[Rfam]
This 84-nucleotide sequence from Neogobius melanostomus belongs to the Rfam family "mir-128 microRNA precursor family".
RNA sequence: CAGCAGUAGAGGAGGGGGCCGUUACACUGUCAGAGAUGUGGUCUCAAGGUCUCACAGUGAACCGGUCUCUUUUCCUGCUGCUUC
Numbered sequence: 001c002a003g004c005a006g007u008a009g010a011g012g013a014g015g016g017g018g019c020c021g022u023u024a025c026a027c028u029g030u031c032a033g034a035g036a037u038g039u040g041g042u043c044u045c046a047a048g049g050u051c052u053c054a055c056a057g058u059g060a061a062c063c064g065g066u067c068u069c070u071u072u073u074c075c076u077g078c079u080g081c082u083u084c
Stems, first nucleotide, its partner, number of pairs: 006078004015069007025059006033053003
The literature on the family includes a 2006 paper in FEBS Lett by Xu et al., "Identification of microRNAs from different tissues of chicken embryo and adult chicken". Pairs were carried over by alignment from the consensus structure, which was predicted with RNAalifold.